[Rfam]
RNA sequence: GCGGCCUGCUCGUGAUCGUCUUCUCACCGUUCACCGGGCAGGCGCGGAGAGGAAACCCCCCGGGAGGACGUGACUCCCGGGGGGUUUCC
Numbered sequence: 001g002c003g004g005c006c007u008g009c010u011c012g013u014g015a016u017c018g019u020c021u022u023c024u025c026a027c028c029g030u031u032c033a034c035c036g037g038g039c040a041g042g043c044g045c046g047g048a049g050a051g052g053a054a055a056c057c058c059c060c061c062g063g064g065a066g067g068a069c070g071u072g073a074c075u076c077c078c079g080g081g082g083g084g085u086u087u088c089c
Base pairs, nucleotide, nucleotide: 001045002044003043005042006041007040008039009038010037011036012034013033014032015031018028051089052088053087054086055085056084057083058082059081060080061079062078063077064076065075066074